[Rfam]
RNA: TPP riboswitch aptamer (THI element)
RNA sequence: CACAUCUUGUCGGGGUGCCUGGAGUAACAGGCUGAGACCACAACAGUGGGGCCCGUAGAACCUGAUCUGGUUAGUACCAGCGUAGGAAACAAGUAGUUCAUCAAA
Numbered sequence: 001c002a003c004a005u006c007u008u009g010u011c012g013g014g015g016u017g018c019c020u021g022g023a024g025u026a027a028c029a030g031g032c033u034g035a036g037a038c039c040a041c042a043a044c045a046g047u048g049g050g051g052c053c054c055g056u057a058g059a060a061c062c063u064g065a066u067c068u069g070g071u072u073a074g075u076a077c078c079a080g081c082g083u084a085g086g087a088a089a090c091a092a093g094u095a096g097u098u099c100a101u102c103a104a105a
Stems, first nucleotide, its partner, number of pairs: 006093005011055004016049001017032005039048003061086004067080004